[Rfam]
T-box leader: a 200-nucleotide RNA from Peptococcaceae bacterium CEB3. By type it is a cis-regulatory leader. Uncharged tRNA acts as the effector for transcription antitermination of genes in the T-box leader family. T-boxes are found upstream of many aminoacyl-tRNA synthetase genes and some amino acid biosynthetic genes usually in Gram-positive bacteria. The anticodon of a specific tRNA base pairs to a specifier sequence within the T-box motif, and the NCCA acceptor tail of the tRNA base pairs to a conserved bulge in the T-box antiterminator hairpin. The family has 48 seed sequences and 19,395 matches in Rfam 15.1. Pairs were carried over by alignment from the consensus structure, which is taken from published work.

RNA sequence: GCAGAAGCGUGGAAGGGAAUUGCCCCGGGCAGUUCUUGCUCAGAGAGACACCGGUUGGUGCGAGGUGUUGCAAGAGGCCGGGGGGUCUCGCCCCGGAGCUGUGCCCAGGUGACAAUGGGCACCGGUCGGUGUCGUUAUCCACCGCUGAGUGCAUGGUGUUAUGAAAUAGGGUGGUACCGCGAGCAAAUCUCGUCCCUUGG
Numbered sequence: 001g002c003a004g005a006a007g008c009g010u011g012g013a014a015g016g017g018a019a020u021u022g023c024c025c026c027g028g029g030c031a032g033u034u035c036u037u038g039c040u041c042a043g044a045g046a047g048a049c050a051c052c053g054g055u056u057g058g059u060g061c062g063a064g065g066u067g068u069u070g071c072a073a074g075a076g077g078c079c080g081g082g083g084g085g086u087c088u089c090g091c092c093c094c095g096g097a098g099c100u101g102u103g104c105c106c107a108g109g110u111g112a113c114a115a116u117g118g119g120c121a122c123c124g125g126u127c128g129g130u131g132u133c134g135u136u137a138u139c140c141a142c143c144g145c146u147g148a149g150u151g152c153a154u155g156g157u158g159u160u161a162u163g164a165a166a167u168a169g170g171g172u173g174g175u176a177c178c179g180c181g182a183g184c185a186a187a188u189c190u191c192g193u194c195c196c197u198u199g200g
Stems, first nucleotide, its partner, number of pairs: 007099002015094003023084004028079001036073003047069006102121006123134003152163004168197004179193005